[Rfam]
RNA sequence: GACCUAACCCUUAAAUUUUUAUUUAAGGCAUGGCCUAAAAUCCUUACGAAUAAAGACGGCCUCAUGGUCGGUCCUAUUCGUAAGGUCUGCUUCCGAAAGGUUGCAGGAUGCCCGAAAGGGUGU
Numbered sequence: 001g002a003c004c005u006a007a008c009c010c011u012u013a014a015a016u017u018u019u020u021a022u023u024u025a026a027g028g029c030a031u032g033g034c035c036u037a038a039a040a041u042c043c044u045u046a047c048g049a050a051u052a053a054a055g056a057c058g059g060c061c062u063c064a065u066g067g068u069c070g071g072u073c074c075u076a077u078u079c080g081u082a083a084g085g086u087c088u089g090c091u092u093c094c095g096a097a098a099g100g101u102u103g104c105a106g107g108a109u110g111c112c113c114g115a116a117a118g119g120g121u122g123u
Base pairs, nucleotide, nucleotide: 001035003033004032009028010027011026012025013024014023015022042085043084044083045082046081047080048079049078050077051076052075055072057070058069059068060067061066087106088105089104090103093100094099108123109122110121111120112119113118